[Rfam]
A member of the RNA family "Glycine riboswitch aptamer" from Hydrocarboniphaga effusa, 129 nucleotides long.
The source organism's lineage runs through Bacteria, Gammaproteobacteria, Nevskiaceae, Hydrocarboniphaga and Hydrocarboniphaga effusa.

RNA sequence: CCAGCAAAAUCUGGAGAGCGGCGGCCACGCGUGGUGAUCAGCGGCCGUCCACCGAUGGGGCACGGCUGCGAGGUUCGCAGUCUCAACUCUCAGGUCCGAAGCGGCUUUCGGAAGGACAGAUGGGGCGGA
Numbered sequence: 001c002c003a004g005c006a007a008a009a010u011c012u013g014g015a016g017a018g019c020g021g022c023g024g025c026c027a028c029g030c031g032u033g034g035u036g037a038u039c040a041g042c043g044g045c046c047g048u049c050c051a052c053c054g055a056u057g058g059g060g061c062a063c064g065g066c067u068g069c070g071a072g073g074u075u076c077g078c079a080g081u082c083u084c085a086a087c088u089c090u091c092a093g094g095u096c097c098g099a100a101g102c103g104g105c106u107u108u109c110g111g112a113a114g115g116a117c118a119g120a121u122g123g124g125g126c127g128g129a
Base pairs, nucleotide, nucleotide: 009121010120011119012118013117020049021048022047023046024045025044026043051095052094053093054091055090058089059088060087064082065081066080067079068078069077070076071075